[Rfam]
RNA sequence: GAGCAUGUGAUGAGGUUCUCGGAUUCCCCUUCAAGACAUUGUGGGUGAUGCAAACCCGAGAUUCUGAUGCU
Numbered sequence: 001g002a003g004c005a006u007g008u009g010a011u012g013a014g015g016u017u018c019u020c021g022g023a024u025u026c027c028c029c030u031u032c033a034a035g036a037c038a039u040u041g042u043g044g045g046u047g048a049u050g051c052a053a054a055c056c057c058g059a060g061a062u063u064c065u066g067a068u069g070c071u
Base pairs, nucleotide, nucleotide: 002071003070004069005068
Shown here is a 71-nucleotide RNA sequence from Trema orientale, a member of the family "Small nucleolar RNA snoR60". Rfam classes the family as a C/D-box small nucleolar RNA. The family is grouped with related families in Rfam's "SNORD101 clan". NCBI's taxonomy places the organism under Eukaryota, Streptophytina, Mesangiospermae, Rosales, Trema. It scores 80 bits against the family's covariance model. On this family, see Barneche et al., J Biol Chem 2000: "Fibrillarin genes encode both a conserved nucleolar protein and a novel small nucleolar RNA involved in ribosomal RNA methylation in Arabidopsis thaliana". The family has 10 seed sequences and 1,133 matches in Rfam 15.1.